[Rfam]
RNA: Small Cajal body specific RNA 4
RNA sequence: UGUGGAGGACUAAUCAGGCUGAGUCUGAAGAGUGAGACUUGGAUGAGAGUAGCCUCCGAAAAGGAAGGGGAUGGGGAGAGCAGUCCUCCUUAGAGACAAGCAAAGGGCUGCCUGUGCCAUCCGACACUC
Numbered sequence: 001u002g003u004g005g006a007g008g009a010c011u012a013a014u015c016a017g018g019c020u021g022a023g024u025c026u027g028a029a030g031a032g033u034g035a036g037a038c039u040u041g042g043a044u045g046a047g048a049g050u051a052g053c054c055u056c057c058g059a060a061a062a063g064g065a066a067g068g069g070g071a072u073g074g075g076g077a078g079a080g081c082a083g084u085c086c087u088c089c090u091u092a093g094a095g096a097c098a099a100g101c102a103a104a105g106g107g108c109u110g111c112c113u114g115u116g117c118c119a120u121c122c123g124a125c126a127c128u129c
Stems, first nucleotide, its partner, number of pairs: 003059001004057005017044001019042001021040006068122003079113002081110007091102001